[Rfam]
RNA sequence: UGAGGAAGACUGGCAAUCGCGGGCUCAAGGCCCGAGGAAAGUCCGAACUCCAUAGAGCAGAAUGCUGGUUAACGGCCAGAAAGGGUGACCUUGAGGAAAGUGCCACAGAAACAUACCGCCUCUCUAGAACAUCCCGUAAAGGGAUGACUAGGCAUAGGCAAGGGUGAAAUGGUGAGGUAAGAGCUCACCAGCAGUCGGGUGACCGACUGGCUGGGUAAACCCCAUUCGGAGCAAGACCAAGUAGAGGGGAUGACACAUGCUCAAUGAGUAUGCGCCUGCAGAUUGCUCGUCUGUUAACCUUCGGGUUGGUCGCUGGAGGCAUCAGGUAACUGCUGCCCUAGAUAGAUGGUUGCCGCCCGGGCUUUUGUGAGAAAGCCGGGGUACAGAAUUCGGCUUACGGCUUCCUCGAUCU
Numbered sequence: 001u002g003a004g005g006a007a008g009a010c011u012g013g014c015a016a017u018c019g020c021g022g023g024c025u026c027a028a029g030g031c032c033c034g035a036g037g038a039a040a041g042u043c044c045g046a047a048c049u050c051c052a053u054a055g056a057g058c059a060g061a062a063u064g065c066u067g068g069u070u071a072a073c074g075g076c077c078a079g080a081a082a083g084g085g086u087g088a089c090c091u092u093g094a095g096g097a098a099a100g101u102g103c104c105a106c107a108g109a110a111a112c113a114u115a116c117c118g119c120c121u122c123u124c125u126a127g128a129a130c131a132u133c134c135c136g137u138a139a140a141g142g143g144a145u146g147a148c149u150a151g152g153c154a155u156a157g158g159c160a161a162g163g164g165u166g167a168a169a170u171g172g173u174g175a176g177g178u179a180a181g182a183g184c185u186c187a188c189c190a191g192c193a194g195u196c197g198g199g200u201g202a203c204c205g206a207c208u209g210g211c212u213g214g215g216u217a218a219a220c221c222c223c224a225u226u227c228g229g230a231g232c233a234a235g236a237c238c239a240a241g242u243a244g245a246g247g248g249g250a251u252g253a254c255a256c257a258u259g260c261u262c263a264a265u266g267a268g269u270a271u272g273c274g275c276c277u278g279c280a281g282a283u284u285g286c287u288c289g290u291c292u293g294u295u296a297a298c299c300u301u302c303g304g305g306u307u308g309g310u311c312g313c314u315g316g317a318g319g320c321a322u323c324a325g326g327u328a329a330c331u332g333c334u335g336c337c338c339u340a341g342a343u344a345g346a347u348g349g350u351u352g353c354c355g356c357c358c359g360g361g362c363u364u365u366u367g368u369g370a371g372a373a374a375g376c377c378g379g380g381g382u383a384c385a386g387a388a389u390u391c392g393g394c395u396u397a398c399g400g401c402u403u404c405c406u407c408g409a410u411c412u
Base pairs, nucleotide, nucleotide: 001408002407003406004405005404006403007402008401010399012354013353014352015351016350017349018348020034021033022032023031024030025029039396040395041394043393044392045391046390047389048231049230050229051228055288056287057286058285060227061226062225063224064223065079066078067077068076069075081092082091083090084089095222096221100220101219102216103215104214116163117162118159119158120157121156123154125152171189172188173187174186175185176184191211192209193208194207195206196205197204198203235311236310237309238308244302245301246300247299248298279293280292281291282290283289318337319336320335321334323332324331325330
Shown here is a 412-nucleotide sequence from Ktedonosporobacter rubrisoli, a member of the family "Bacterial RNase P class A".